[Rfam]
RNA sequence: CUUUCUACACAGGUUGGGAUCGGUUGCAAUGCUGUGUUAAAUCAGUGGUAUUGCACUUGUCCCGGCCUGUUGAGGUUGG
Numbered sequence: 001c002u003u004u005c006u007a008c009a010c011a012g013g014u015u016g017g018g019a020u021c022g023g024u025u026g027c028a029a030u031g032c033u034g035u036g037u038u039a040a041a042u043c044a045g046u047g048g049u050a051u052u053g054c055a056c057u058u059g060u061c062c063c064g065g066c067c068u069g070u071u072g073a074g075g076u077u078g079g
Stems, first nucleotide, its partner, number of pairs: 004075003009070006016063005022057003026054009
Dot-bracket structure: ...(((..((((((.(((((.(((.(((((((((...........)))))))))))).))))).))))))..)))....
Rfam assigns this 79-nucleotide sequence from Ophiophagus hannah to the family "mir-92 microRNA precursor family". Pairs were carried over by alignment from the consensus structure, which was predicted with PFOLD. A search with the family's covariance model found it, with a score of 82 bits. This family represents the microRNA precursor mir-92.